The family of this 120-nucleotide RNA sequence from Peptococcaceae bacterium SCADC1_2_3 is "Molybdenum/Tungsten riboswitch aptamer (Moco RNA motif)". Pairs were carried over by alignment from the consensus structure, which is taken from published work. Rfam 15.1 lists 1,248 matches to the family in 836 species. Lineage of the source: Bacteria > Bacillati > Bacillota > Clostridia > Peptococcaceae.

[Rfam]
RNA sequence: UAUGCUCUUAUUCUCCGAGCCGAUAGCCCUAAAAUUAAUUAUCAUGGGUUUUUGGCCGAUAGGGUACAUCUGAAAACGGAUGUGCCUCCCAAUGUGGAAAGGAGAAGGCUUUAUUUUGUU
Number, nucleotide and partner (000 for none) at each position: 001u000002a000003u000004g000005c000006u000007c000008u000009u000010a000011u106012u105013c104014u103015c102016c101017g000018a000019g056020c055021c054022g053023a052024u000025a050026g049027c048028c047029c046030u000031a000032a000033a000034a042035u041036u000037a000038a000039u000040u000041a035042u034043c000044a000045u000046g029047g028048g027049u026050u025051u000052u023053u022054g021055g020056c019057c000058g000059a000060u000061a000062g087063g086064g085065u084066a083067c082068a081069u080070c079071u078072g077073a000074a000075a000076a000077c072078g071079g070080a069081u068082g067083u066084g065085c064086c063087u062088c097089c096090c000091a000092a000093u000094g000095u000096g089097g088098a000099a000100a000101g016102g015103a014104g013105a012106a011107g000108g000109c000110u000111u000112u000113a000114u000115u000116u000117u000118g000119u000120u000

Rfam links the family to the GO terms molybdenum ion binding, tungstate binding and regulation of gene expression.